Rfam assigns this 124-nucleotide RNA sequence from Vibrio renipiscarius to the family "t44 RNA". The match comes from Rfam's covariance-model search (78 bits). The source organism's lineage runs through Bacteria, Pseudomonadota, Gammaproteobacteria, Vibrionaceae and Vibrio. From the family's description: This family consists of a number of bacterial RNA genes of between 135 and 170 bases in length. Pairs were carried over by alignment from the consensus structure, which was predicted with LocARNA. Rfam classes the family as a small RNA.
[Rfam]
RNA sequence: UAAACUUUAUCUUUAAAUCACACACAUUUCGACACAUGUUCCGGGGUGCCUUAACAAUAAGACUAUUUGUGCUUAAACAGAUAGAUGUUACAGGUCGGAUUCAUGGGAAAUGUGGAGGCCUAAC
Numbered sequence: 001u002a003a004a005c006u007u008u009a010u011c012u013u014u015a016a017a018u019c020a021c022a023c024a025c026a027u028u029u030c031g032a033c034a035c036a037u038g039u040u041c042c043g044g045g046g047u048g049c050c051u052u053a054a055c056a057a058u059a060a061g062a063c064u065a066u067u068u069g070u071g072c073u074u075a076a077a078c079a080g081a082u083a084g085a086u087g088u089u090a091c092a093g094g095u096c097g098g099a100u101u102c103a104u105g106g107g108a109a110a111u112g113u114g115g116a117g118g119c120c121u122a123a124c
Base pairs, nucleotide, nucleotide: 023114024113025112026111027110028109029108030107035105036104037103038102040099041098042097043096048095049094050093051092